[Rfam]
RNA sequence: AGGACCCAGUGCUGCUCUGUUGAACUCAAAAGCUGAACCCUGUUGUUGACUUCAACAGGAGCAAGACUGAGCCCU
Numbered sequence: 001a002g003g004a005c006c007c008a009g010u011g012c013u014g015c016u017c018u019g020u021u022g023a024a025c026u027c028a029a030a031a032g033c034u035g036a037a038c039c040c041u042g043u044u045g046u047u048g049a050c051u052u053c054a055a056c057a058g059g060a061g062c063a064a065g066a067c068u069g070a071g072c073c074c075u
Base pairs, nucleotide, nucleotide: 002073003072005071007069008068009067010066013063014062015061016060017059018057019056020055021054022053023052024051026049027048028047029046031044032043033042
A member of the RNA family "mir-1744 microRNA precursor family" from Gallus gallus, 75 nucleotides long.
The source organism's lineage runs through Eukaryota, Euteleostomi, Sauria, Aves and Gallus.
It is one of the family's seed sequences.